[Rfam]
Rfam assigns this 130-nucleotide RNA from Cicer arietinum to the family "Small nucleolar RNA U19". By type it is an H/ACA-box small nucleolar RNA. Rfam links the family to the GO terms RNA processing and nucleolus. Pairs were carried over by alignment from the consensus structure, which was predicted with WAR. A search with the family's covariance model found it, with a score of 62 bits. NCBI's taxonomy places the organism under Eukaryota, Embryophyta, eudicotyledons, Pentapetalae, Cicer.

RNA sequence: AUUUGACUUAGUUAGGGGGCAAAUAUUAAUAGAAAAUCUAAUGUUUAUUAGGUUUCAUUCAAAGAUAGGCUUUUUGAAUCUACAAUUUGUUCUCUCAUAUCAUUUGUAACUCAAACAGCCUUUCACAUAU
Numbered sequence: 001a002u003u004u005g006a007c008u009u010a011g012u013u014a015g016g017g018g019g020c021a022a023a024u025a026u027u028a029a030u031a032g033a034a035a036a037u038c039u040a041a042u043g044u045u046u047a048u049u050a051g052g053u054u055u056c057a058u059u060c061a062a063a064g065a066u067a068g069g070c071u072u073u074u075u076g077a078a079u080c081u082a083c084a085a086u087u088u089g090u091u092c093u094c095u096c097a098u099a100u101c102a103u104u105u106g107u108a109a110c111u112c113a114a115a116c117a118g119c120c121u122u123u124c125a126c127a128u129a130u
Stems, first nucleotide, its partner, number of pairs: 004021002007018003034055005042047001064124002067121004073115004078111001081108005